RNA sequence: CGAGUCGGCCGGGCGGUCGCGUCGGCGCCCUAGUGGCGUCACCGAGGAACGUCCGGACUCCGAAGAGCAGGGUGGUUGUUAACGGCAACCCGGGGCGACCCGCGGGAAAGUGCCACAGAGAACAGACCGCCGGCCCCGCGCUCAGGCGCGGUGCAGGUAAGGGUGAAACGGUGAGGUAAGAGCUCACCAGCACCCCGGGUGACCGGGGUGGCUCGGUAAACCCCACCCGGAGCAAGGCCAAGAAAGGCCGCCGAAAGGCGACCGGCGCAGGCGUUCGAGGGCUGCUCGCCCAAGCCUGCGGGUAGGCCGCAAGAGCCCACCGGCAACGUUGGGCCGAGAUGGAUGACCGCCCCAGGCGACUAGUCGCCAGGACAGAAUCCGGCGUACAGGCCGACUCGCCCG
Numbered sequence: 001c002g003a004g005u006c007g008g009c010c011g012g013g014c015g016g017u018c019g020c021g022u023c024g025g026c027g028c029c030c031u032a033g034u035g036g037c038g039u040c041a042c043c044g045a046g047g048a049a050c051g052u053c054c055g056g057a058c059u060c061c062g063a064a065g066a067g068c069a070g071g072g073u074g075g076u077u078g079u080u081a082a083c084g085g086c087a088a089c090c091c092g093g094g095g096c097g098a099c100c101c102g103c104g105g106g107a108a109a110g111u112g113c114c115a116c117a118g119a120g121a122a123c124a125g126a127c128c129g130c131c132g133g134c135c136c137c138g139c140g141c142u143c144a145g146g147c148g149c150g151g152u153g154c155a156g157g158u159a160a161g162g163g164u165g166a167a168a169c170g171g172u173g174a175g176g177u178a179a180g181a182g183c184u185c186a187c188c189a190g191c192a193c194c195c196c197g198g199g200u201g202a203c204c205g206g207g208g209u210g211g212c213u214c215g216g217u218a219a220a221c222c223c224c225a226c227c228c229g230g231a232g233c234a235a236g237g238c239c240a241a242g243a244a245a246g247g248c249c250g251c252c253g254a255a256a257g258g259c260g261a262c263c264g265g266c267g268c269a270g271g272c273g274u275u276c277g278a279g280g281g282c283u284g285c286u287c288g289c290c291c292a293a294g295c296c297u298g299c300g301g302g303u304a305g306g307c308c309g310c311a312a313g314a315g316c317c318c319a320c321c322g323g324c325a326a327c328g329u330u331g332g333g334c335c336g337a338g339a340u341g342g343a344u345g346a347c348c349g350c351c352c353c354a355g356g357c358g359a360c361u362a363g364u365c366g367c368c369a370g371g372a373c374a375g376a377a378u379c380c381g382g383c384g385u386a387c388a389g390g391c392c393g394a395c396u397c398g399c400c401c402g
Stems, first nucleotide, its partner, number of pairs: 001398010011387001012351007020044002024040005049385003053382005058232004065287004070228005075089005090104001091102004105223002110221002112217003127162002129158003133154002136151006170188006190212001191210008236308004267299006279291004315334005321328002
The record is a 402-nucleotide RNA sequence from Paractinoplanes tereljensis, which matches "Bacterial RNase P class A" in Rfam. NCBI's taxonomy places the organism under Bacteria, Bacillati, Actinomycetota, Micromonosporales, Paractinoplanes. It scores 278 bits against the family's covariance model. By type it is a ribozyme.